[Rfam]
RNA sequence: GUAGAUGCUCAUUCCAUUCUUAUGUUCGCUUCGGCCUCAUAAACCCGGGAAUGAUGCAGAGCCAUUUACGAUGUCUGCUGUCCAGCUAUCCAUUAUUACAUUGUUAAUAUUGGAAUCCCGGACAAACCGUUGAGUCAGACAUCACUCGGUUGUCUUAAACGACCUGAUCUUGCACCUGUCGCUUGCGGCAGGUGUUUUUUU
Numbered sequence: 001g002u003a004g005a006u007g008c009u010c011a012u013u014c015c016a017u018u019c020u021u022a023u024g025u026u027c028g029c030u031u032c033g034g035c036c037u038c039a040u041a042a043a044c045c046c047g048g049g050a051a052u053g054a055u056g057c058a059g060a061g062c063c064a065u066u067u068a069c070g071a072u073g074u075c076u077g078c079u080g081u082c083c084a085g086c087u088a089u090c091c092a093u094u095a096u097u098a099c100a101u102u103g104u105u106a107a108u109a110u111u112g113g114a115a116u117c118c119c120g121g122a123c124a125a126a127c128c129g130u131u132g133a134g135u136c137a138g139a140c141a142u143c144a145c146u147c148g149g150u151u152g153u154c155u156u157a158a159a160c161g162a163c164c165u166g167a168u169c170u171u172g173c174a175c176c177u178g179u180c181g182c183u184u185g186c187g188g189c190a191g192g193u194g195u196u197u198u199u200u201u
Stems, first nucleotide, its partner, number of pairs: 001062002006058003009054004015049001017048001018041001026034001028032001070143007080123004092111001094109002152163003172195010
RNA: GlmZ RNA activator of glmS mRNA